[Rfam]
RNA sequence: UCUUCAUUUCCCGAGCUCUCUCACCGGUCAGAGUGACGAGAAAGUGUGCGAAAUGAAGGGA
Numbered sequence: 001u002c003u004u005c006a007u008u009u010c011c012c013g014a015g016c017u018c019u020c021u022c023a024c025c026g027g028u029c030a031g032a033g034u035g036a037c038g039a040g041a042a043a044g045u046g047u048g049c050g051a052a053a054u055g056a057a058g059g060g061a
Stems, first nucleotide, its partner, number of pairs: 001059007010050001012048002015045003019041004

mir-8364 microRNA precursor family: a 61-nucleotide RNA from Pristionchus pacificus. The base pairs follow the family's consensus structure, which was predicted with RNAalifold. Rfam 15.1 lists 3,320 matches to the family in 2 species. Rfam links the family to the GO terms RISC complex and miRNA-mediated post-transcriptional gene silencing. The match comes from Rfam's covariance-model search (76 bits). The source organism's lineage runs through Eukaryota, Opisthokonta, Chromadorea, Diplogasteromorpha and Pristionchus.